Rfam assigns this 102-nucleotide RNA from Actinidia chinensis to the family "Small nucleolar RNA Z152/R70/R12/". The source organism's lineage runs through Eukaryota, Streptophyta, Ericales, Actinidiaceae and Actinidia chinensis. A reference for the family is Barneche et al. (2001), "Identification of 66 box C/D snoRNAs in Arabidopsis thaliana: extensive gene duplications generated multiple isoforms predicting new ribosomal RNA 2'-O-methylation sites", J Mol Biol. Rfam links the family to the GO terms nucleolus and RNA processing. The family has 9 seed sequences and 604 matches in Rfam 15.1.
[Rfam]
RNA sequence: AAUGCUGUGAUUAGGUGAGGCACCCGUGGGGGCAGUGGAAUAAGCAUGAACUGUCUCUCCGUGAGCCCAAUUUAUAAACGACUUCUCCUUCCACUGAGCAUC
Numbered sequence: 001a002a003u004g005c006u007g008u009g010a011u012u013a014g015g016u017g018a019g020g021c022a023c024c025c026g027u028g029g030g031g032g033c034a035g036u037g038g039a040a041u042a043a044g045c046a047u048g049a050a051c052u053g054u055c056u057c058u059c060c061g062u063g064a065g066c067c068c069a070a071u072u073u074a075u076a077a078a079c080g081a082c083u084u085c086u087c088c089u090u091c092c093a094c095u096g097a098g099c100a101u102c
Base pairs, nucleotide, nucleotide: 002101003100004099005098